[Rfam]
Rfam assigns this 109-nucleotide sequence from Pirellula staleyi to the family "c-di-GMP-I-GGC riboswitch aptamer".

RNA sequence: CUCGAUAAGGGCAAACCGGUAGAGAUGCCGGGGCGCAAAGCAAAGGGCCUUUGGCCCGCUGGGAUCACGCAAGUGAACUGGUGGGCCGAUGGUAGCCUGGCUGCCGAAA
Numbered sequence: 001c002u003c004g005a006u007a008a009g010g011g012c013a014a015a016c017c018g019g020u021a022g023a024g025a026u027g028c029c030g031g032g033g034c035g036c037a038a039a040g041c042a043a044a045g046g047g048c049c050u051u052u053g054g055c056c057c058g059c060u061g062g063g064a065u066c067a068c069g070c071a072a073g074u075g076a077a078c079u080g081g082u083g084g085g086c087c088g089a090u091g092g093u094a095g096c097c098u099g100g101c102u103g104c105c106g107a108a109a
Base pairs, nucleotide, nucleotide: 003106004105011036012035016031017030018029019028020027021026034095039102040101041100044098045097046096047093048092049091
The literature on the family includes a 2010 paper in Biochemistry by Smith et al., "Structural and biochemical determinants of ligand binding by the c-di-GMP riboswitch ".
It scores 63 bits against the family's covariance model.
Its family is annotated with cyclic-di-GMP binding in the Gene Ontology.
The base pairs follow the family's consensus structure, which is taken from published work.
Lineage of the source: Bacteria > Pseudomonadati > Pirellulales > Pirellulaceae > Pirellula staleyi.